A member of the RNA family "Small nucleolar RNA SNORA24" from Leptosomus discolor, 131 nucleotides long. The base pairs follow the family's consensus structure, which was predicted with RNAfold. The organism belongs to Leptosomus, within Eukaryota. It is annotated as an H/ACA-box small nucleolar RNA.
RNA sequence: AUCCAUGACUCCAUGGGGACUGCCGCCCAUGGCUGUCUCCCUUCCUAGGCAUGGAAGAGCAGUGCCUUGCGAAUUGGCAAAAAUUUUACCCUCUCGUAGGUAUUAGUCGUUGACUGUAGCAAGUAACAGGC
Numbered sequence: 001a002u003c004c005a006u007g008a009c010u011c012c013a014u015g016g017g018g019a020c021u022g023c024c025g026c027c028c029a030u031g032g033c034u035g036u037c038u039c040c041c042u043u044c045c046u047a048g049g050c051a052u053g054g055a056a057g058a059g060c061a062g063u064g065c066c067u068u069g070c071g072a073a074u075u076g077g078c079a080a081a082a083a084u085u086u087u088a089c090c091c092u093c094u095c096g097u098a099g100g101u102a103u104u105a106g107u108c109g110u111u112g113a114c115u116g117u118a119g120c121a122a123g124u125a126a127c128a129g130g131c
Stems, first nucleotide, its partner, number of pairs: 002055006015041004020035001022033003068128002074122003077117002080115001084105001088101003
Dot-bracket structure: .((((((.......((((.(.(((......))).)..))))........))))))............((....(((((.(...(...(((........)))...).........)))..)))....))...